The record is a 77-nucleotide RNA from Schistosoma margrebowiei, which matches "mir-3492 microRNA precursor family" in Rfam. Pairs were carried over by alignment from the consensus structure, which was predicted with RNAalifold. Taxonomically the source falls in Schistosoma (Eukaryota, Spiralia, Strigeidida, Schistosomatidae).
[Rfam]
RNA sequence: AGCUUUUUGCAUCCGUGCAGAGAUUUCGUCAAACACCAACCCAACAGAGCUCAUGAGACUUCCAAGGUGGUGAAGUU
Numbered sequence: 001a002g003c004u005u006u007u008u009g010c011a012u013c014c015g016u017g018c019a020g021a022g023a024u025u026u027c028g029u030c031a032a033a034c035a036c037c038a039a040c041c042c043a044a045c046a047g048a049g050c051u052c053a054u055g056a057g058a059c060u061u062c063c064a065a066g067g068u069g070g071u072g073a074a075g076u077u
Base pairs, nucleotide, nucleotide: 002076003075004074005073006072008070010069011068012067013066016064017063020061021060022059024058025057026056027055028054029053